[Rfam]
RNA sequence: CCCUUCGAUCGUGUAUCCCCGAUUAAUGCAGCCUCAGAUGCUUUA
Number, nucleotide and partner (000 for none) at each position: 001c000002c000003c000004u000005u000006c000007g000008a023009u022010c021011g020012u000013g000014u000015a000016u000017c000018c000019c000020c011021g010022a009023u008024u000025a000026a000027u000028g000029c000030a042031g041032c040033c000034u000035c000036a000037g000038a000039u000040g032041c031042u030043u000044u000045a000

The family of this 45-nucleotide RNA from Fragaria iinumae is "Plastid-ycf3 group II-D1 intron". Rfam's curators put it in the seed alignment. Rfam describes the family as follows. Plastid rpl16 is a non-coding RNA (ncRNA) recognised in plastids. It was recognised in and intronic region of a ribosome rpl16 gene. The literature on the family includes a 2023 paper in Plant Commun by Richter et al., "Retrograde signaling in plants: A critical review focusing on the GUN pathway and beyond". Pairs were carried over by alignment from the consensus structure, which was predicted with LocARNA.